The family of this 99-nucleotide RNA from Branchiostoma belcheri is "mir-2060 microRNA precursor family".
Its family is annotated with miRNA-mediated post-transcriptional gene silencing and RISC complex in the Gene Ontology.
The family's consensus secondary structure was predicted with RNAalifold.
The organism belongs to Branchiostoma, within Eukaryota.
The family has 7 seed sequences and 3,696 matches in Rfam 15.1.
RNA sequence: GUGUGUGUGUAGAUGGUGUUCAGCACCAAGGACAGGCAUGUUUGCCAAUUUUUGCAUUGUGUGGAUAGCGUUCAGCACCAAGGACAGGUCUAUUUGAUU
Numbered sequence: 001g002u003g004u005g006u007g008u009g010u011a012g013a014u015g016g017u018g019u020u021c022a023g024c025a026c027c028a029a030g031g032a033c034a035g036g037c038a039u040g041u042u043u044g045c046c047a048a049u050u051u052u053u054g055c056a057u058u059g060u061g062u063g064g065a066u067a068g069c070g071u072u073c074a075g076c077a078c079c080a081a082g083g084a085c086a087g088g089u090c091u092a093u094u095u096g097a098u099u
Base pairs, nucleotide, nucleotide: 001089002088004086005085006084014080015079016078017077018076019075020074022072023071024070026068028066030060032058034057036055037054038053